Shown here is a 137-nucleotide sequence from Pseudomonas sp. BAY1663, a member of the family "Pseudomonas sRNA P11". The match comes from Rfam's covariance-model search (124 bits). NCBI's taxonomy places the organism under Bacteria, Pseudomonadati, Pseudomonadota, Gammaproteobacteria, Pseudomonas.
RNA sequence: GUUUUGCCAAGUUGGCACAGCCUCUGCAAUGCGAAUGGCGAAGAACAUACGACCUGACCCUCAACGUGGAGCGGCAGGUUUCCCGACUGAGCGGGACACGGACAAAGGCGUCCUCACUGGGUAACCAGUGGGACGCC
Numbered sequence: 001g002u003u004u005u006g007c008c009a010a011g012u013u014g015g016c017a018c019a020g021c022c023u024c025u026g027c028a029a030u031g032c033g034a035a036u037g038g039c040g041a042a043g044a045a046c047a048u049a050c051g052a053c054c055u056g057a058c059c060c061u062c063a064a065c066g067u068g069g070a071g072c073g074g075c076a077g078g079u080u081u082c083c084c085g086a087c088u089g090a091g092c093g094g095g096a097c098a099c100g101g102a103c104a105a106a107g108g109c110g111u112c113c114u115c116a117c118u119g120g121g122u123a124a125c126c127a128g129u130g131g132g133a134c135g136c137c
Base pairs, nucleotide, nucleotide: 012105013104014103015027016026017025052079053078054077055076056075058073061070062069081096082095083094084093085092107137108136109135110134111133112132113131115130116129117128118127119126120125

It is annotated as a non-coding RNA gene. Pairs were carried over by alignment from the consensus structure, which was predicted with RNAalifold. From the family's description: This small RNA (sRNA) was computationally identified in the genome of the opportunistic pathogen Pseudomonas aeruginosa and its expression verified by northern blot analysis. P11 is located between a putative threonine protein kinase and putative nitrate reductase and appears to be conserved in several Pseudomonas species.